[Rfam]
RNA sequence: CCGAAAGUGAGGAAAAAAUCUCACGGGUUGGAAACAAGGACACAACCCCGUGCGGUUUCG
Numbered sequence: 001c002c003g004a005a006a007g008u009g010a011g012g013a014a015a016a017a018a019u020c021u022c023a024c025g026g027g028u029u030g031g032a033a034a035c036a037a038g039g040a041c042a043c044a045a046c047c048c049c050g051u052g053c054g055g056u057u058u059c060g
Stems, first nucleotide, its partner, number of pairs: 018056003022052006028045003
RNA: Cyano-1 RNA